Background
drz-agam-2-2 ribozyme: a 180-nucleotide sequence from Anopheles stephensi.
RNA sequence: CAUGUCGAUUGCUCUGUUAAUGGGGUAGGAUCCGAGACUCCUUUCGGGAUUACAAAGGCUCUCCUACCCAACUCCUCGUCGUACAGAGUGGUAACUUUCCCCACCACAUAUCCAAGCUUGGGUACACGGGCCUGUCCCAACCCCUUGGGCGGAUGGUGGAGAAAGGCUAAACAGGAGGGG
Number, nucleotide and partner (000 for none) at each position: 001c000002a000003u000004g000005u000006c000007g000008a000009u000010u000011g089012c088013u087014c086015u085016g084017u083018u000019a000020a000021u000022g000023g069024g068025g067026u066027a065028g064029g063030a062031u000032c058033c057034g000035a000036g000037a000038c000039u000040c000041c000042u000043u000044u000045c000046g000047g000048g000049a000050u000051u000052a000053c000054a000055a000056a000057g033058g032059c000060u000061c000062u030063c029064c028065u027066a026067c025068c024069c023070a000071a000072c000073u180074c091075c090076u000077c000078g000079u000080c000081g000082u000083a017084c016085a015086g014087a013088g012089u011090g075091g074092u000093a000094a000095c165096u164097u163098u162099c161100c000101c000102c158103a157104c156105c155106a000107c000108a000109u000110a154111u153112c152113c151114a000115a000116g000117c000118u140119u139120g138121g137122g136123u000124a000125c000126a000127c000128g000129g000130g000131c000132c000133u000134g000135u000136c122137c121138c120139a119140a118141c000142c149143c148144c000145u000146u000147g000148g143149g142150c000151g113152g112153a111154u110155g105156g104157u103158g102159g000160a000161g099162a098163a097164a096165g095166g000167c000168u000169a000170a000171a000172c000173a000174g000175g000176a000177g000178g000179g000180g073
A search with the family's covariance model found it, with a score of 134 bits.
The family has 5 seed sequences and 486 matches in Rfam 15.1.
A reference for the family is Webb et al. (2009), "Widespread occurrence of self-cleaving ribozymes", Science.
Gene Ontology term of the family: catalytic activity.
The source organism's lineage runs through Eukaryota, Protostomia, Dicondylia, Culicoidea and Neocellia.